The family of this 111-nucleotide sequence from Oryza sativa is "Plastid-psbA-1 3UTR RNA".
NCBI's taxonomy places the organism under Eukaryota, Embryophyta, Petrosaviidae, Oryzeae, Oryza sativa.
It scores 70 bits against the family's covariance model.
Plastid psbA-1 is a non-coding RNA (ncRNA) present in plastids. It was identified in inverted repeat sequences in the 3 prime untranslate region (3UTR) of photosystem II quinone-binding protein (psbA).
Clan: Plastid-psbA 3UTR RNA clan.
[Rfam]
RNA sequence: UUGAAGUUCCAUCUCUUAAUAGAUAAGGCUUUUCUGCUAACAUAUUGAAGAAAGAAAAGCUAGAAAUACCCAAUAUCUUGCUGAAAGCAAGAUAUUGGGUAUUUCUUUUUU
Numbered sequence: 001u002u003g004a005a006g007u008u009c010c011a012u013c014u015c016u017u018a019a020u021a022g023a024u025a026a027g028g029c030u031u032u033u034c035u036g037c038u039a040a041c042a043u044a045u046u047g048a049a050g051a052a053a054g055a056a057a058a059g060c061u062a063g064a065a066a067u068a069c070c071c072a073a074u075a076u077c078u079u080g081c082u083g084a085a086a087g088c089a090a091g092a093u094a095u096u097g098g099g100u101a102u103u104u105c106u107u108u109u110u111u
Stems, first nucleotide, its partner, number of pairs: 008023002011020002057111003062106008071097003075093005